[Rfam]
RNA: T-box leader
RNA sequence: AGAAAAGCAAUGAAGAGGAAAAGUAAUCUUUUGAUACAACAUUCGCAGAGAGCCGGGAUUGCUGGAAACCGGUAGUGUUACAAAAGAUGAACUCACCUCUGAGUUUCAGCUUGAAAGCACUUUGCAAGUAAAGCUGAACGGGUGCAUACCGGCACCCGUUACCAAAAAUGAUGAAGAGCGUACAUAUGUGUACGAAUUAGGGUGGUACCGUGGACUGGUUAUGAAGCCUUUUCACCCCUUGA
Dot-bracket structure: ......((......((((.......((((((.........(((........(((((............))))))))......)))))).......))))...)).(((((((..................))))))).(((((((......)))))))....................((((((....))))))....((((.......(((((................)))))))))...